[Rfam]
RNA sequence: GUUCGUCUUCAGGGGCAGGGUGAAAUUCCCGACCGGUGGUAUAGUCCACGACCUAUUUUGAUAUGAUGUUAAAAUAGCUGAAUUGGUGAGAUUCCAAUACCGACAGUAAAGUCUGGAUAAAGAAGAUAGGG
Numbered sequence: 001g002u003u004c005g006u007c008u009u010c011a012g013g014g015g016c017a018g019g020g021u022g023a024a025a026u027u028c029c030c031g032a033c034c035g036g037u038g039g040u041a042u043a044g045u046c047c048a049c050g051a052c053c054u055a056u057u058u059u060g061a062u063a064u065g066a067u068g069u070u071a072a073a074a075u076a077g078c079u080g081a082a083u084u085g086g087u088g089a090g091a092u093u094c095c096a097a098u099a100c101c102g103a104c105a106g107u108a109a110a111g112u113c114u115g116g117a118u119a120a121a122g123a124a125g126a127u128a129g130g131g
Base pairs, nucleotide, nucleotide: 003129005127006126007125008124009123010122018030019029020028032112033111034102035101036049037048038047039046044100045099053077054076055075056074082098083097084096085095086094104115105114106113
Dot-bracket structure: ..(.((((((.......(((.......))).[[((((((....[[))))...((((.................))))....(((((.......)))))]])).(((....]])))......)))))).)..